This 75-nucleotide sequence belongs to the Rfam family "ASpks TB sRNA". Rfam classes the family as an antisense RNA.
RNA sequence: CUUGAGCGAGCCCAGCCAGAGCGGCCGGCCGGCGGGCCGCUCCUUGCCGUACGUGGCGAGCAGGGCCCGCGCCUC
Dot-bracket structure: ..............(((.....)))......((....(....(((.(((....))).)))....)...)).....